[Rfam]
RNA: Glycine riboswitch aptamer
RNA sequence: CUCUGGAAAGCAGACCGGUGCGCCGGUCUCACCCAAGGUGCAAGCCGGGAAAUCCCGGUGAAUCUCUCAGGUCAGAUUACAGAG
Number, nucleotide and partner (000 for none) at each position: 001c084002u083003c082004u081005g080006g000007a000008a000009a000010g000011c000012a029013g028014a027015c026016c000017g000018g000019u000020g000021c000022g000023c000024c000025g000026g015027u014028c013029u012030c000031a072032c071033c070034c000035a067036a000037g000038g066039u000040g064041c000042a000043a000044g059045c058046c057047g056048g000049g000050a000051a000052a000053u000054c000055c000056c047057g046058g045059u044060g000061a000062a000063u000064c040065u000066c038067u035068c000069a000070g033071g032072u031073c000074a000075g000076a000077u000078u000079a000080c005081a004082g003083a002084g001